A member of the RNA family "mir-483 microRNA precursor family" from Canis lupus, 69 nucleotides long. It is one of the family's seed sequences. Gene Ontology terms of the family: miRNA-mediated post-transcriptional gene silencing and RISC complex.
RNA sequence: GAGGACGGGAGGAAAGGAGGACGUGGUUUCAUGCAGGUCCUCACUCCUCCCCUCCCGUCUUCCUCUUCC
Numbered sequence: 001g002a003g004g005a006c007g008g009g010a011g012g013a014a015a016g017g018a019g020g021a022c023g024u025g026g027u028u029u030c031a032u033g034c035a036g037g038u039c040c041u042c043a044c045u046c047c048u049c050c051c052c053u054c055c056c057g058u059c060u061u062c063c064u065c066u067u068c069c
Base pairs, nucleotide, nucleotide: 001062002061003060004059005058006057007056008055009054010053011052012051016049018048019047020046021045023044024043025042